[Rfam]
RNA sequence: UCCCCCGCUUUUCCUCCCUGAGCGGGUGCCUUAUGUGUGACAGCAAAAAGGCUUGCCAACCCCGGCCGUCGGCCGGGGUUUUUUUUU
Numbered sequence: 001u002c003c004c005c006c007g008c009u010u011u012u013c014c015u016c017c018c019u020g021a022g023c024g025g026g027u028g029c030c031u032u033a034u035g036u037g038u039g040a041c042a043g044c045a046a047a048a049a050g051g052c053u054u055g056c057c058a059a060c061c062c063c064g065g066c067c068g069u070c071g072g073c074c075g076g077g078g079u080u081u082u083u084u085u086u087u
Base pairs, nucleotide, nucleotide: 004026005025006024007023008022009021028052029051030050031049032048034046059079060078061077062076063075064074065073066072
Shown here is an 87-nucleotide RNA from Ramlibacter sp. Leaf400, a member of the family "Burkholderia RNA 7 (anti-hemB)". From the family's description: This RNA motif was identified by computational search in b-proteobacteria Burkholderia. Co-purified with Hfq, expression confirmed by Northern blot. Pairs were carried over by alignment from the consensus structure, which is taken from published work. The family has 26 seed sequences and 479 matches in Rfam 15.1. Gene Ontology terms of the family: bacterial biofilm matrix and protein binding. The source organism's lineage runs through Bacteria, Pseudomonadati, Pseudomonadota, Comamonadaceae and Ramlibacter.